Nucleotides: 061
Base pairs, nucleotide, nucleotide: 034061036059037056038055039054040053041052042051043050044049
Number, partner (000 for none) and nucleotide at each position: 001000u002000a003000g004000u005000g006000u007000u008000a009000c010000a011000g012000c013000u014000c015000u016000u017000u018000u019000a020000g021000a022000a023000u024000u025000u026000u027000u028000c029000u030000a031000g032000u033000a034061g035000a036059u037056u038055u039054u040053c041052u042051g043050g044049u045000g046000c047000u048000c049044a050043c051042u052041g053040g054039a055038a056037g057000a058000c059036a060000c061034c
Overview
Shown here is a 61-nucleotide RNA sequence from Prolemur simus, a member of the family "U7 small nuclear RNA". A search with the family's covariance model found it, with a score of 51 bits. Taxonomically the source falls in Prolemur (Eukaryota, Metazoa, Sarcopterygii, Euarchontoglires). Pairs were carried over by alignment from the consensus structure, which was predicted with PFOLD.